[Rfam]
RNA sequence: CCUGGUGUUCCGUCAUCAGUAGCCUACCGAUACAUGCAGGACUGGCAACGGUCUUGUGUGAAGCUAUCGGGACAAUGCACUCAGGCCAUUUGGCCGCGCAGAGCCGCGAGGCAAGGCGUCCACUGCAAGCAUCAAUGCGGGGUGAGG
Numbered sequence: 001c002c003u004g005g006u007g008u009u010c011c012g013u014c015a016u017c018a019g020u021a022g023c024c025u026a027c028c029g030a031u032a033c034a035u036g037c038a039g040g041a042c043u044g045g046c047a048a049c050g051g052u053c054u055u056g057u058g059u060g061a062a063g064c065u066a067u068c069g070g071g072a073c074a075a076u077g078c079a080c081u082c083a084g085g086c087c088a089u090u091u092g093g094c095c096g097c098g099c100a101g102a103g104c105c106g107c108g109a110g111g112c113a114a115g116g117c118g119u120c121c122a123c124u125g126c127a128a129g130c131a132u133c134a135a136u137g138c139g140g141g142g143u144g145a146g147g
Base pairs, nucleotide, nucleotide: 002019003018004017005016006015007014028069029068030067031066032065033060034059035058036057037056038055039054040053041052042051043050044049082096084095085094086093087092097118098117099116104111105110123140124139125138126137127136

The family of this 147-nucleotide RNA from Bordetella petrii is "Group II catalytic intron D1-D4-7". The organism belongs to Bordetella, within Bacteria. The pairing is the family consensus, mapped onto this sequence.